The record is a 123-nucleotide RNA from Pelotomaculum isophthalicicum, which matches "Molybdenum/Tungsten riboswitch aptamer (Moco RNA motif)" in Rfam.

[Rfam]
RNA sequence: AAACAAAGAAUUCUCCGAGCCUGGCAUACCUAAACAAAAGCAGGGUACGGUAACCAGGCCGUUAGGGUACGGUGGGAAACUCCUGUACCUCCCGGUGCGGAAAGGAGAGGUUUUUGGAAAAAA
Dot-bracket structure: ...(.(....((((((..((((((..((((...((.........))..)))).)))))).....((((((((.((....)).))))))))((......))...))))))....).).......
Numbered sequence: 001a002a003a004c005a006a007a008g009a010a011u012u013c014u015c016c017g018a019g020c021c022u023g024g025c026a027u028a029c030c031u032a033a034a035c036a037a038a039a040g041c042a043g044g045g046u047a048c049g050g051u052a053a054c055c056a057g058g059c060c061g062u063u064a065g066g067g068u069a070c071g072g073u074g075g076g077a078a079a080c081u082c083c084u085g086u087a088c089c090u091c092c093c094g095g096u097g098c099g100g101a102a103a104g105g106a107g108a109g110g111u112u113u114u115u116g117g118a119a120a121a122a123a
Stems, first nucleotide, its partner, number of pairs: 004116001006114001011109006019059006027052004034046002065090008074081002091100002
A search with the family's covariance model found it, with a score of 67 bits.
The base pairs follow the family's consensus structure, which is taken from published work.